[Rfam]
RNA sequence: CCAGUUGGCCGGGCAGCCGCGCUUCACAAGGGCCGAAAGGCUGUGAGGUGAGGAAAGUCCGGGCUCCACGGAAAGACGGUGCCGGAUAACGUCCGGCGGGGGCGACCCCAGGGACAGUGCCACAGAAAGCAAACCGCCUGCACGGCGCCUCGCGCGUCAUGGCGGGUAAGGGUGAAAGGGUGGGGUAAGAGCCCACCGCGGCCCUGGCAACAGGGACGGCACGGUAAACCCCACCGGGAGCAAGACCGAAUAGGGAUGACGUGAUGGCGCCUUCGGGCGCCUUCAGCCUUUUCCGGGCCAGUCAUCCGGGUGGGUUGCGUGAGGCGGCGCGUAAGCGUCGUCCCAGAUGAAUGGCUGCCACGUUCCGGCUCUCAAAAGGCCGGAGCCUUACAGAACCCGGCUUAUAGGCCAACUGGCUUU
Numbered sequence: 001c002c003a004g005u006u007g008g009c010c011g012g013g014c015a016g017c018c019g020c021g022c023u024u025c026a027c028a029a030g031g032g033c034c035g036a037a038a039g040g041c042u043g044u045g046a047g048g049u050g051a052g053g054a055a056a057g058u059c060c061g062g063g064c065u066c067c068a069c070g071g072a073a074a075g076a077c078g079g080u081g082c083c084g085g086a087u088a089a090c091g092u093c094c095g096g097c098g099g100g101g102g103c104g105a106c107c108c109c110a111g112g113g114a115c116a117g118u119g120c121c122a123c124a125g126a127a128a129g130c131a132a133a134c135c136g137c138c139u140g141c142a143c144g145g146c147g148c149c150u151c152g153c154g155c156g157u158c159a160u161g162g163c164g165g166g167u168a169a170g171g172g173u174g175a176a177a178g179g180g181u182g183g184g185g186u187a188a189g190a191g192c193c194c195a196c197c198g199c200g201g202c203c204c205u206g207g208c209a210a211c212a213g214g215g216a217c218g219g220c221a222c223g224g225u226a227a228a229c230c231c232c233a234c235c236g237g238g239a240g241c242a243a244g245a246c247c248g249a250a251u252a253g254g255g256a257u258g259a260c261g262u263g264a265u266g267g268c269g270c271c272u273u274c275g276g277g278c279g280c281c282u283u284c285a286g287c288c289u290u291u292u293c294c295g296g297g298c299c300a301g302u303c304a305u306c307c308g309g310g311u312g313g314g315u316u317g318c319g320u321g322a323g324g325c326g327g328c329g330c331g332u333a334a335g336c337g338u339c340g341u342c343c344c345a346g347a348u349g350a351a352u353g354g355c356u357g358c359c360a361c362g363u364u365c366c367g368g369c370u371c372u373c374a375a376a377a378g379g380c381c382g383g384a385g386c387c388u389u390a391c392a393g394a395a396c397c398c399g400g401c402u403u404a405u406a407g408g409c410c411a412a413c414u415g416g417c418u419u420u
Base pairs, nucleotide, nucleotide: 001416002415003414004413005412006411007410008409009408010407011405012359013358014357015356016355017354018353020050021049022048023047024046025045026044027043028042055403056402057401059400060399061398062397063396064240065239066238067237074292075291077236078235079234080233081232082096083095084094085093086092097111098109099108100107101106112231113230117229118228119225120224121223134171135170136167137166138165139164140163141162142160144158145157146156147155148154179197180196181195182194183193184192198220199218200217202215203214204213205212206211244316245315246314247313254307255306256305257304258303259302286298287297288296289295323342324341325340326339327338328337329336330335

Shown here is a 420-nucleotide RNA sequence from Xaviernesmea oryzae, a member of the family "Bacterial RNase P class A". The organism belongs to Xaviernesmea, within Bacteria. Rfam classes the family as a ribozyme.